Rfam assigns this 174-nucleotide RNA from Fictibacillus arsenicus to the family "SAM riboswitch aptamer (S box leader)". Lineage of the source: Bacteria > Bacillati > Bacillota > Fictibacillaceae > Fictibacillus. The base pairs follow the family's consensus structure, which is taken from published work. It scores 77 bits against the family's covariance model.

RNA sequence: CUCUUAUCAAGAGCAGGUGGAGGGAAUGGCCCGAUGAAACCCAGCAACCGACCGUAAUACCAUUGUGAAAUGGGGCGCCCGCAAGAUAUGGGGAGCCGCUGGAUUUUUUUAUUAAAAUCAGCGUAUGGCACGGUGCUAAUUCCAGCAAAACUACUCGUUUUGCUAAGAUAAGAG
Numbered sequence: 001c002u003c004u005u006a007u008c009a010a011g012a013g014c015a016g017g018u019g020g021a022g023g024g025a026a027u028g029g030c031c032c033g034a035u036g037a038a039a040c041c042c043a044g045c046a047a048c049c050g051a052c053c054g055u056a057a058u059a060c061c062a063u064u065g066u067g068a069a070a071u072g073g074g075g076c077g078c079c080c081g082c083a084a085g086a087u088a089u090g091g092g093g094a095g096c097c098g099c100u101g102g103a104u105u106u107u108u109u110u111a112u113u114a115a116a117a118u119c120a121g122c123g124u125a126u127g128g129c130a131c132g133g134u135g136c137u138a139a140u141u142c143c144a145g146c147a148a149a150a151c152u153a154c155u156c157g158u159u160u161u162g163c164u165a166a167g168a169u170a171a172g173a174g
Base pairs, nucleotide, nucleotide: 001174002173003172004171005170006169007168008167013042016041017040018039022032023031024030027144028143029142043137044136045135046134048133049132050129052127141166146162147161148160149159150158151157